[Rfam]
RNA sequence: AAAAUAAAUAUUGUGCACCCUCAUAUAUAUCUAAGAAUAAGGCUGGAUGUUUCUACAAGAUUACCUUAAAUAAUCUAACUAUGAGUGGAAUUGUUAUACAU
Numbered sequence: 001a002a003a004a005u006a007a008a009u010a011u012u013g014u015g016c017a018c019c020c021u022c023a024u025a026u027a028u029a030u031c032u033a034a035g036a037a038u039a040a041g042g043c044u045g046g047a048u049g050u051u052u053c054u055a056c057a058a059g060a061u062u063a064c065c066u067u068a069a070a071u072a073a074u075c076u077a078a079c080u081a082u083g084a085g086u087g088g089a090a091u092u093g094u095u096a097u098a099c100a101u
Base pairs, nucleotide, nucleotide: 018087020085021084022083023082024081025080029048030047031046032045034044035043058076059075060074061073062072063071